Bradyrhizobiaceae sRNA BjrC174: a 205-nucleotide RNA sequence from Allobosea sp. OK403. For this family Rfam cites "Small RNAs of the Bradyrhizobium/Rhodopseudomonas lineage and their analysis" (Madhugiri et al., RNA Biol, 2012). The source organism's lineage runs through Bacteria, Pseudomonadati, Hyphomicrobiales, Alloboseaceae and Allobosea.
[Rfam]
RNA sequence: AUCACAGCUUCGUCAGCUUCGCCGCAUUUUCGCCCGAAACGGGACAAGCGACGGCCAAACUAGGCGGUUCAACUGACCAUGUUGCCUCGACGGCCCGGCCUGCCGAUCUUCGGAUUUGUCAGCCCCCCAGCCCCCCGGAUUUCGGAUGGGCCGGGCCAAUCGGUUCGAGGCUACCUCACGGCCGGCGGUCUCCGCUGGCCGUUUU
Numbered sequence: 001a002u003c004a005c006a007g008c009u010u011c012g013u014c015a016g017c018u019u020c021g022c023c024g025c026a027u028u029u030u031c032g033c034c035c036g037a038a039a040c041g042g043g044a045c046a047a048g049c050g051a052c053g054g055c056c057a058a059a060c061u062a063g064g065c066g067g068u069u070c071a072a073c074u075g076a077c078c079a080u081g082u083u084g085c086c087u088c089g090a091c092g093g094c095c096c097g098g099c100c101u102g103c104c105g106a107u108c109u110u111c112g113g114a115u116u117u118g119u120c121a122g123c124c125c126c127c128c129a130g131c132c133c134c135c136c137g138g139a140u141u142u143c144g145g146a147u148g149g150g151c152c153g154g155g156c157c158a159a160u161c162g163g164u165u166c167g168a169g170g171c172u173a174c175c176u177c178a179c180g181g182c183c184g185g186c187g188g189u190c191u192c193c194g195c196u197g198g199c200c201g202u203u204u205u
Base pairs, nucleotide, nucleotide: 036175040048084171085170086169087168088167089166090165092157093156094155095154096153097152098151099150100149101148102147105143106142109139110138111137112136113135122131123130179201180200181199182198183197184196185195186194187193188192